[Rfam]
RNA sequence: GUGUGAAAUGAUGGCAUACCAUCUUUCGGGACUGACUUGAAAUGGAGAGUUCCUUUUACUCUGCUGAUCACUU
Numbered sequence: 001g002u003g004u005g006a007a008a009u010g011a012u013g014g015c016a017u018a019c020c021a022u023c024u025u026u027c028g029g030g031a032c033u034g035a036c037u038u039g040a041a042a043u044g045g046a047g048a049g050u051u052c053c054u055u056u057u058a059c060u061c062u063g064c065u066g067a068u069c070a071c072u073u
Stems, first nucleotide, its partner, number of pairs: 001073001003071004
RNA: Small nucleolar RNA SNORD2
Organism: Amphiprion percula